Rfam assigns this 432-nucleotide part of an RNA from Oreochromis aureus to the family "Eukaryotic large subunit ribosomal RNA".
The organism belongs to Oreochromis, within Eukaryota.
[Rfam]
RNA sequence: CGACCUCAGAUCAGACGAGACAACCCGCUGAAUUUAAGCAUAUUACUAAGCGGAGGAAAAGAAACUAACAAGGAUUCCCUUAGUAGCGGCGAGCGAAGAGGGAAGAGCCCAGCGCCGAAUCCCCGUCCGACAGGCGGGCGUGGGAAAUGUGGCGUACGGAAGACCGCUUUGCCCGGUGCCGAUCGGGGGCCCAAGUCCUUCUGAUCGAGGCCCCAUCCCACGGACGGUGUGAGGCCGGUGGCGGCCCCUGUCGCGCCGGGGUUCGGUCUUCUCGGAGUCGGGUUGUUUGGGAAUGCAGCCCAACGUGGGUGGUAAACUCCAUCUAAGGCUAAAUACCGGCACGAGACCGAUAGACGACAAGUACCGUAAGGGAAAGUUGAAAAGAACUUUGAAGAGAGAGUUCAACAGGGCGUGAAACCGUUAAGAGGUAAA
Dot-bracket structure: .......................((((((.....((....))......))))).).........((....))...(((((.....((.....))....)))))..((((...(((((.((((((((((.......))))).))))..).)))))....((.((((.......(((((((.....(((((((...(.((((......))))).......(...)..((.......))......)))))))...))))))).....)))).))........(((((((........))))))).....(((((........)))))..)))).................................((....))...............((((....))))..................................
Numbered sequence: 001c002g003a004c005c006u007c008a009g010a011u012c013a014g015a016c017g018a019g020a021c022a023a024c025c026c027g028c029u030g031a032a033u034u035u036a037a038g039c040a041u042a043u044u045a046c047u048a049a050g051c052g053g054a055g056g057a058a059a060a061g062a063a064a065c066u067a068a069c070a071a072g073g074a075u076u077c078c079c080u081u082a083g084u085a086g087c088g089g090c091g092a093g094c095g096a097a098g099a100g101g102g103a104a105g106a107g108c109c110c111a112g113c114g115c116c117g118a119a120u121c122c123c124c125g126u127c128c129g130a131c132a133g134g135c136g137g138g139c140g141u142g143g144g145a146a147a148u149g150u151g152g153c154g155u156a157c158g159g160a161a162g163a164c165c166g167c168u169u170u171g172c173c174c175g176g177u178g179c180c181g182a183u184c185g186g187g188g189g190c191c192c193a194a195g196u197c198c199u200u201c202u203g204a205u206c207g208a209g210g211c212c213c214c215a216u217c218c219c220a221c222g223g224a225c226g227g228u229g230u231g232a233g234g235c236c237g238g239u240g241g242c243g244g245c246c247c248c249u250g251u252c253g254c255g256c257c258g259g260g261g262u263u264c265g266g267u268c269u270u271c272u273c274g275g276a277g278u279c280g281g282g283u284u285g286u287u288u289g290g291g292a293a294u295g296c297a298g299c300c301c302a303a304c305g306u307g308g309g310u311g312g313u314a315a316a317c318u319c320c321a322u323c324u325a326a327g328g329c330u331a332a333a334u335a336c337c338g339g340c341a342c343g344a345g346a347c348c349g350a351u352a353g354a355c356g357a358c359a360a361g362u363a364c365c366g367u368a369a370g371g372g373a374a375a376g377u378u379g380a381a382a383a384g385a386a387c388u389u390u391g392a393a394g395a396g397a398g399a400g401u402u403c404a405a406c407a408g409g410g411c412g413u414g415a416a417a418c419c420g421u422u423a424a425g426a427g428g429u430a431a432a
Stems, first nucleotide, its partner, number of pairs: 024055001025053005035042002065072002076103005086094002106330004113154005119148001120145004124140005159271002162268004173259007185249007195211001197210004219223001226236002280301007307324005364371002387398004